[Rfam]
RNA sequence: GAAGUCCGGCCCAAGUAAGGAGUAGCGUCCGCUUGGUAGCGAGUGUUGCGCAGCCAAUGGCGACAGGGGUUGCGAAGCGUACACAGCGAUUGCAUGGGGUGUGGGAUUGAGCCACGAAAGAUCAGACAUUGCAGGGGCCGAGGGUUUUCAUUCACUCGAAGGCAACAUGUGCGGUACCGCUAUGCGAGGUGCCGUCGCCCUGCCGGGGUCCAAGGCCA
Numbered sequence: 001g002a003a004g005u006c007c008g009g010c011c012c013a014a015g016u017a018a019g020g021a022g023u024a025g026c027g028u029c030c031g032c033u034u035g036g037u038a039g040c041g042a043g044u045g046u047u048g049c050g051c052a053g054c055c056a057a058u059g060g061c062g063a064c065a066g067g068g069g070u071u072g073c074g075a076a077g078c079g080u081a082c083a084c085a086g087c088g089a090u091u092g093c094a095u096g097g098g099g100u101g102u103g104g105g106a107u108u109g110a111g112c113c114a115c116g117a118a119a120g121a122u123c124a125g126a127c128a129u130u131g132c133a134g135g136g137g138c139c140g141a142g143g144g145u146u147u148u149c150a151u152u153c154a155c156u157c158g159a160a161g162g163c164a165a166c167a168u169g170u171g172c173g174g175u176a177c178c179g180c181u182a183u184g185c186g187a188g189g190u191g192c193c194g195u196c197g198c199c200c201u202g203c204c205g206g207g208g209u210c211c212a213a214g215g216c217c218a
Base pairs, nucleotide, nucleotide: 012035013034014033015032019030020029021028023187025185026184037089039087040086043084044083045082046081047079048078049074050073051072052071053070054069055068058065059064108212109210111209112208113207115205116204131203132202133201134200135199136198137163138162139161142157143156144155145154168197169196171195172194173193174192175191176190177189178188

The record is a 218-nucleotide RNA sequence, which matches "Group II catalytic intron D1-D4-6" in Rfam. Pairs were carried over by alignment from the consensus structure. Its family is annotated with Group II intron splicing in the Gene Ontology. On this family, see Bonen and Vogel, Trends Genet 2001: "The ins and outs of group II introns".